Rfam assigns this 131-nucleotide sequence from Thalictrum thalictroides to the family "Small nucleolar RNA snoR74". Pairs were carried over by alignment from the consensus structure, which was predicted with WAR. The literature on the family includes a 2002 paper in Curr Biol by Marker et al., "Experimental RNomics: identification of 140 candidates for small non-messenger RNAs in the plant Arabidopsis thaliana". The match comes from Rfam's covariance-model search (54 bits). Rfam links the family to the GO terms RNA processing and nucleolus.
[Rfam]
Nucleotides: 131
Base pairs, nucleotide, nucleotide: 006045007044011035012034014032015031016030060125061124062123063122065120066119067118068117076113077112078111079110080109081108082107
Number, partner (000 for none) and nucleotide at each position: 001000u002000u003000a004000u005000a006045a007044g008000a009000a010000c011035a012034g013000a014032u015031u016030u017000a018000c019000u020000u021000u022000u023000u024000a025000a026000g027000a028000a029000c030016g031015g032014g033000u034012c035011u036000c037000u038000a039000g040000u041000a042000g043000a044007c045006u046000a047000u048000a049000g050000g051000g052000a053000a054000a055000a056000c057000a058000a059000a060125u061124u062123c063122a064000u065120u066119g067118u068117u069000u070000u071000u072000g073000g074000g075000g076113u077112g078111a079110a080109c081108c082107u083000a084000u085000g086000g087000a088000u089000u090000u091000u092000u093000u094000u095000a096000u097000a098000a099000g100000c101000a102000c103000c104000a105000a106000u107082g108081g109080g110079u111078u112077c113076a114000g115000a116000u117068a118067a119066u120065g121000u122063u123062g124061a125060a126000a127000c128000a129000u130000u131000a